A member of the RNA family "MAT2A 3'UTR stem loop B" from Sus scrofa, 63 nucleotides long. For this family Rfam cites "New families of human regulatory RNA structures identified by comparative analysis of vertebrate genomes" (Parker et al., Genome Res, 2011). Rfam 15.1 lists 248 matches to the family in 157 species. The source organism's lineage runs through Eukaryota, Chordata, Boreoeutheria, Suidae and Sus. It scores 49 bits against the family's covariance model.
[Rfam]
RNA sequence: ACAGGUACCUGGUAUCCUUGGGAUGUCAAACAGAAAGUCACAGGGUAGUUCCUAAGGGACUAU
Numbered sequence: 001a002c003a004g005g006u007a008c009c010u011g012g013u014a015u016c017c018u019u020g021g022g023a024u025g026u027c028a029a030a031c032a033g034a035a036a037g038u039c040a041c042a043g044g045g046u047a048g049u050u051c052c053u054a055a056g057g058g059a060c061u062a063u
Base pairs, nucleotide, nucleotide: 001063003061004060006058008056012052016045017044018043019042020041022039023038024037025031026030